RNA sequence: AUUCCCCUGUGCUGUUGGUGAUUGCUAAAGUGUGUUGAGCCAACUCUCAAUAAAAGGGCGUUGUCUCUUGUCAGUAAAGGUGAAUCGGUGACGAAUUGGCUGAGCUGAUAAUAUGAUGCCCACCUAUUAAUUUAGGUUUAACUAUCUUAGCGACACGGCAGUGUGGGGGAUUU
Numbered sequence: 001a002u003u004c005c006c007c008u009g010u011g012c013u014g015u016u017g018g019u020g021a022u023u024g025c026u027a028a029a030g031u032g033u034g035u036u037g038a039g040c041c042a043a044c045u046c047u048c049a050a051u052a053a054a055a056g057g058g059c060g061u062u063g064u065c066u067c068u069u070g071u072c073a074g075u076a077a078a079g080g081u082g083a084a085u086c087g088g089u090g091a092c093g094a095a096u097u098g099g100c101u102g103a104g105c106u107g108a109u110a111a112u113a114u115g116a117u118g119c120c121c122a123c124c125u126a127u128u129a130a131u132u133u134a135g136g137u138u139u140a141a142c143u144a145u146c147u148u149a150g151c152g153a154c155a156c157g158g159c160a161g162u163g164u165g166g167g168g169g170a171u172u173u
Stems, first nucleotide, its partner, number of pairs: 003170013018156002032145002034142001036140006056121003060117005069110007076097002081093002
Annotation: A member of the RNA family "6S / SsrS RNA" from Desulfotalea psychrophila, 173 nucleotides long. Taxonomically the source falls in Desulfotalea psychrophila (Bacteria, Pseudomonadati, Thermodesulfobacteriota, Desulfocapsaceae). It is one of the family's seed sequences. The family has 150 seed sequences and 5,006 matches in Rfam 15.1. The base pairs follow the family's consensus structure, which is taken from published work.